About this RNA: Shown here is an 84-nucleotide RNA from Piliocolobus tephrosceles, a member of the family "mir-548 microRNA precursor family". On this family, see Witten et al., BMC Biol 2010: "Ultra-high throughput sequencing-based small RNA discovery and discrete statistical biomarker analysis in a collection of cervical tumours and matched controls". It scores 91 bits against the family's covariance model. The family's consensus secondary structure was predicted with WAR. Gene Ontology terms of the family: RISC complex and miRNA-mediated post-transcriptional gene silencing. Taxonomically the source falls in Piliocolobus (Eukaryota, Bilateria, Eutheria, Catarrhini).
Nucleotides: 084
Base pairs, nucleotide, nucleotide: 001084002083003082004081005080006079007078008077009076010075011074012073013072014071015070016069017068018067019066020065021064022063023062024061025060026059027058028057029056030055031054032053033052034051035050036049038047039046
Number, partner (000 for none) and nucleotide at each position: 001084u002083a003082u004081u005080a006079g007078g008077u009076u010075g011074g012073u013072g014071c015070a016069g017068a018067a019066g020065u021064c022063a023062u024061u025060g026059u027058g028057g029056u030055u031054u032053u033052u034051g035050u036049c037000c038047u039046u040000a041000a042000u043000u044000u045000c046039a047038a048000u049036g050035g051034c052033a053032a054031a055030a056029a057028c058027c059026a060025c061024a062023a063022u064021g065020a066019c067018u068017u069016u070015u071014g072013c073012a074011c075010c076009a077008a078007c079006c080005u081004a082003a083002u084001a